Notes: Small nucleolar RNA snR60/Z15/Z230/Z193/J17: a 108-nucleotide RNA sequence from Cadophora sp. M221. The pairing is the family consensus, mapped onto this sequence. Lineage of the source: Eukaryota > Dikarya > sordariomyceta > Helotiales > Cadophora. A search with the family's covariance model found it, with a score of 55 bits. Its Rfam clan is "SNORD77 clan". Its family is annotated with nucleolus and RNA processing in the Gene Ontology.
[Rfam]
RNA sequence: UAUCUGCACCCUGAUGAACAAACAAUCAAUGCAUAGUUCAUCUGAGACUUCGGUCCAUGAAUGAUACAAAUUCAGCAAUGUCUUUCGCUCCUAUCUGAUCUGCAACUA
Dot-bracket structure: ....((((............................................................................................))))....
Numbered sequence: 001u002a003u004c005u006g007c008a009c010c011c012u013g014a015u016g017a018a019c020a021a022a023c024a025a026u027c028a029a030u031g032c033a034u035a036g037u038u039c040a041u042c043u044g045a046g047a048c049u050u051c052g053g054u055c056c057a058u059g060a061a062u063g064a065u066a067c068a069a070a071u072u073c074a075g076c077a078a079u080g081u082c083u084u085u086c087g088c089u090c091c092u093a094u095c096u097g098a099u100c101u102g103c104a105a106c107u108a
Stems, first nucleotide, its partner, number of pairs: 005104004